[Rfam]
RNA: Small nucleolar RNA snR60/Z15/Z230/Z193/J17
RNA sequence: CCGAUACAAUGAUGAUUGCAUAGUUCAGCAGAAUAUCCUUUGAUGAAUACUUCUGUUCUUCGCCCCUAUCUGAUGUAUCUG
Numbered sequence: 001c002c003g004a005u006a007c008a009a010u011g012a013u014g015a016u017u018g019c020a021u022a023g024u025u026c027a028g029c030a031g032a033a034u035a036u037c038c039u040u041u042g043a044u045g046a047a048u049a050c051u052u053c054u055g056u057u058c059u060u061c062g063c064c065c066c067u068a069u070c071u072g073a074u075g076u077a078u079c080u081g
Stems, first nucleotide, its partner, number of pairs: 004078005